[Rfam]
RNA sequence: GGGUGUUCGCCGAUGGAGGCGGGCAGGUUUCAGCUCCGGUCGGGCCGCCGGUG
Numbered sequence: 001g002g003g004u005g006u007u008c009g010c011c012g013a014u015g016g017a018g019g020c021g022g023g024c025a026g027g028u029u030u031c032a033g034c035u036c037c038g039g040u041c042g043g044g045c046c047g048c049c050g051g052u053g
Stems, first nucleotide, its partner, number of pairs: 005024007034053001036051005